Overview: The record is a 177-nucleotide sequence from Acipenser ruthenus, which matches "Small nucleolar RNA SNORA81" in Rfam. The match comes from Rfam's covariance-model search (105 bits). For this family Rfam cites "A novel experimental approach for systematic identification of box H/ACA snoRNAs from eukaryotes" (Gu et al., Nucleic Acids Res, 2005). The family's RNA type in Rfam is H/ACA-box small nucleolar RNA. Its family is annotated with RNA processing and nucleolus in the Gene Ontology.
[Rfam]
RNA sequence: ACCUUCCUGAUAAAAGCACUUUGCUAAAAUUGUGAAUUAUGUCUUUGGACUUGGUUUUAACAAUAAUGCUAGCAGAGUACACAAAGGGAAGUAUUUGCACUGUAUCGUAAAUGAGAUGAGGUCGGACCUCUUUCUUAAUGUCCAGUGCCCUCUUCUCAAGAUUUCAGUGUAACAUCU
Dot-bracket structure: ..................((.(((((..((((.(.((((.(((....))).)))).)......))))..))))).))..................(((((((.(................(..(((..............)))..)................).)))))))......